Description: azaaromatic riboswitch aptamer (yjdF RNA): a 112-nucleotide RNA sequence from Laceyella tengchongensis.

RNA sequence: UAAAAGGAAUGAAAAAUCACAUUACUGGUUGGUAGUCCAGUAACAUUAGGGUGCGAACCCCUAAUGAAGUAUCCUUGCCCCCUCGGGCUCGUCCAUCAUUCCUUUAUUAUUC
Dot-bracket structure: ...((((((((..........((.((((........)))).))((((((((.......))))))))...........(((....))).........))))))))........
Overview
Taxonomically the source falls in Laceyella (Bacteria, Bacilli, Caryophanales, Thermoactinomycetaceae).